[Rfam]
RNA: Alphaproteobacterial ar15
Organism: Nitratireductor aestuarii
RNA sequence: ACUCACGGAGGUGUUCUCCUCCCAUUUUCCUCCGCGAGUGUUCCCCUCUGGAGGUUUUGCCUAACGGCACUCCAAUAAACUCAAGCCGGGUCAUUUGAUCCGGCUCUUUUU
Numbered sequence: 001a002c003u004c005a006c007g008g009a010g011g012u013g014u015u016c017u018c019c020u021c022c023c024a025u026u027u028u029c030c031u032c033c034g035c036g037a038g039u040g041u042u043c044c045c046c047u048c049u050g051g052a053g054g055u056u057u058u059g060c061c062u063a064a065c066g067g068c069a070c071u072c073c074a075a076u077a078a079a080c081u082c083a084a085g086c087c088g089g090g091u092c093a094u095u096u097g098a099u100c101c102g103g104c105u106c107u108u109u110u111u
Stems, first nucleotide, its partner, number of pairs: 002038003006034006049074005055069001084105009